The record is a 560-nucleotide part of an RNA, which matches "Bacterial small subunit ribosomal RNA" in Rfam. The literature on the family includes a 2001 paper in Science by Yusupov et al., "Crystal structure of the ribosome at 5.5 A resolution".

[Rfam]
RNA sequence: GAACUCAAGAGUUUGAUCCUGGCUCAGAUUGAACGCUGGCGGCAUGCUUUACACAUGCAAGUCGAACGGUAACAGGGUGCUUGCACCGCUGACGAGUGGCGAACGGGUGAGUAAUGCGUCGGAACGUGCCGAGUAGUGGGGGAUAACGCAGCGAAAGUUGUGCUAAUACCGCAUACGUACUGAGGUAGAAAGUGGGGGACCUUCGGGCCUCACGCUAUUCGAGCGGCCGACGUCUGAUUAGCUAGUAGGUGAGGUAAAGGCUCACCUAGGCGACGAUCAGUAGCGGGUCUGAGAGGAUGAUCCGCCACACUGGGACUGAGACACGGCCCAGACUCCUACGGGAGGCAGCAGUGGGGAAUUUUGGACAAUGGGCGAAAGCCUGAUCCAGCCAUGCCGCGUGUCUGAAGAAGGCCUUCGGGUUGUAAAGGACUUUUGUCAGGGAGGAAAUCCCUAGCGUUAAUACCGCUGGGGGAUGACAGUACCUGAAGAAUAAGCACCGGCUAACUACGUGCCAGCAGCCGCGGUAAUACGUAGGGUGCGAGCGUUAAUCGGAAUUACUG
Numbered sequence: 001g002a003a004c005u006c007a008a009g010a011g012u013u014u015g016a017u018c019c020u021g022g023c024u025c026a027g028a029u030u031g032a033a034c035g036c037u038g039g040c041g042g043c044a045u046g047c048u049u050u051a052c053a054c055a056u057g058c059a060a061g062u063c064g065a066a067c068g069g070u071a072a073c074a075g076g077g078u079g080c081u082u083g084c085a086c087c088g089c090u091g092a093c094g095a096g097u098g099g100c101g102a103a104c105g106g107g108u109g110a111g112u113a114a115u116g117c118g119u120c121g122g123a124a125c126g127u128g129c130c131g132a133g134u135a136g137u138g139g140g141g142g143a144u145a146a147c148g149c150a151g152c153g154a155a156a157g158u159u160g161u162g163c164u165a166a167u168a169c170c171g172c173a174u175a176c177g178u179a180c181u182g183a184g185g186u187a188g189a190a191a192g193u194g195g196g197g198g199a200c201c202u203u204c205g206g207g208c209c210u211c212a213c214g215c216u217a218u219u220c221g222a223g224c225g226g227c228c229g230a231c232g233u234c235u236g237a238u239u240a241g242c243u244a245g246u247a248g249g250u251g252a253g254g255u256a257a258a259g260g261c262u263c264a265c266c267u268a269g270g271c272g273a274c275g276a277u278c279a280g281u282a283g284c285g286g287g288u289c290u291g292a293g294a295g296g297a298u299g300a301u302c303c304g305c306c307a308c309a310c311u312g313g314g315a316c317u318g319a320g321a322c323a324c325g326g327c328c329c330a331g332a333c334u335c336c337u338a339c340g341g342g343a344g345g346c347a348g349c350a351g352u353g354g355g356g357a358a359u360u361u362u363g364g365a366c367a368a369u370g371g372g373c374g375a376a377a378g379c380c381u382g383a384u385c386c387a388g389c390c391a392u393g394c395c396g397c398g399u400g401u402c403u404g405a406a407g408a409a410g411g412c413c414u415u416c417g418g419g420u421u422g423u424a425a426a427g428g429a430c431u432u433u434u435g436u437c438a439g440g441g442a443g444g445a446a447a448u449c450c451c452u453a454g455c456g457u458u459a460a461u462a463c464c465g466c467u468g469g470g471g472g473a474u475g476a477c478a479g480u481a482c483c484u485g486a487a488g489a490a491u492a493a494g495c496a497c498c499g500g501c502u503a504a505c506u507a508c509g510u511g512c513c514a515g516c517a518g519c520c521g522c523g524g525u526a527a528u529a530c531g532u533a534g535g536g537u538g539c540g541a542g543c544g545u546u547a548a549u550c551g552g553a554a555u556u557a558c559u560g
Base pairs, nucleotide, nucleotide: 009025010024011023012022013021027550028549029548030547032546033545034544035543036542037541039397040396041395042394043393044392046389047355052353053352054351056350057349058348061100062099063098066097067096069093070092076087077086078085079084107308108307109306116233117232118231119230120229121228122227125225126224130221131220132219133218134217135216136215138172140170141169147162148161149160150159151158152157178187179186180185192213193212194211195210196209197208234280235279236278241271242270243269246268247267248266249265250264251263252262253261283305284304285303286302287298288297289296290295310331311330312329313328314327333344334343335342336341361387363386364385365384369382370381371380372379373378400430401429402428403427410421411420412419413418436486437485438484439483440482444477450471451470452469494539495538496537497536498535505534506533507532508531509530515522516521